[Rfam]
RNA sequence: CUUGAGCGAACCGAGCCAGAGGGGCCGGUCCCCGGCGCGCGCCUGGCCGUAGGUCGCCAGCAGCGCCUGUGCUUC
Number, nucleotide and partner (000 for none) at each position: 001c000002u000003u000004g000005a000006g000007c000008g000009a000010a000011c000012c000013g000014a000015g025016c024017c023018a000019g000020a000021g000022g000023g017024g016025c015026c000027g000028g000029u000030c000031c071032c000033c069034g000035g000036c000037g000038c065039g064040c000041g000042c000043c060044u059045g058046g000047c056048c000049g054050u000051a000052g000053g000054u049055c000056g047057c000058c045059a044060g043061c000062a000063g000064c039065g038066c000067c000068u000069g033070u000071g031072c000073u000074u000075c000
The record is a 75-nucleotide RNA from Amycolatopsis sp. CA-230715, which matches "ASpks TB sRNA" in Rfam. Lineage of the source: Bacteria > Actinomycetota > Actinomycetes > Pseudonocardiaceae > Amycolatopsis. The family has 77 seed sequences and 9,052 matches in Rfam 15.1. The family's consensus secondary structure is taken from published work. Rfam classes the family as an antisense RNA.